[Rfam]
RNA sequence: GGGAGUAGGAGGAUCGCUGACAGAGUUCGACUCUGAGGAAAGUCCCCUCUCCACAGUGCAGACGGCUUACAGAAGUAAGAGAACAGAAAUGGUCAGGUCAAUGCAGCAGAAACGAACGAUGCAAGGUGUGUACAAUGAUGUUGAAAGACGGAGAUUGCCUUGUGGUCGAUGAGACGAGCAACCCCGUUGGAGCAAGUCCAAACAGUCCCGCCGAAGCGGCACGCCGAGGGACAGGUAGGAUGCUAAGUUGAAUGCGGUCACCGAAAGGGAACAGAAAGGGGCUUACUCCCUACUCCC
Numbered sequence: 001g002g003g004a005g006u007a008g009g010a011g012g013a014u015c016g017c018u019g020a021c022a023g024a025g026u027u028c029g030a031c032u033c034u035g036a037g038g039a040a041a042g043u044c045c046c047c048u049c050u051c052c053a054c055a056g057u058g059c060a061g062a063c064g065g066c067u068u069a070c071a072g073a074a075g076u077a078a079g080a081g082a083a084c085a086g087a088a089a090u091g092g093u094c095a096g097g098u099c100a101a102u103g104c105a106g107c108a109g110a111a112a113c114g115a116a117c118g119a120u121g122c123a124a125g126g127u128g129u130g131u132a133c134a135a136u137g138a139u140g141u142u143g144a145a146a147g148a149c150g151g152a153g154a155u156u157g158c159c160u161u162g163u164g165g166u167c168g169a170u171g172a173g174a175c176g177a178g179c180a181a182c183c184c185c186g187u188u189g190g191a192g193c194a195a196g197u198c199c200a201a202a203c204a205g206u207c208c209c210g211c212c213g214a215a216g217c218g219g220c221a222c223g224c225c226g227a228g229g230g231a232c233a234g235g236u237a238g239g240a241u242g243c244u245a246a247g248u249u250g251a252a253u254g255c256g257g258u259c260a261c262c263g264a265a266a267g268g269g270a271a272c273a274g275a276a277a278g279g280g281g282c283u284u285a286c287u288c289c290c291u292a293c294u295c296c297c
Stems, first nucleotide, its partner, number of pairs: 001297003005293005010287002012259006021035005040284003044281005049192004056222004061188005066079005081094002084091001096183002102180003117168003120164008140149002196241004205232005
Rfam assigns this 297-nucleotide RNA to the family "Archaeal RNase P". Ribonuclease P (RNase P) is a ubiquitous endoribonuclease, found in archaea, bacteria and eukarya as well as chloroplasts and mitochondria. Its best characterised activity is the generation of mature 5'-ends of tRNAs by cleaving the 5'-leader elements of precursor-tRNAs. A reference for the family is Frank and Pace (1998), "Ribonuclease P: unity and diversity in a tRNA processing ribozyme", Annu Rev Biochem. Its Rfam clan is "RNaseP clan".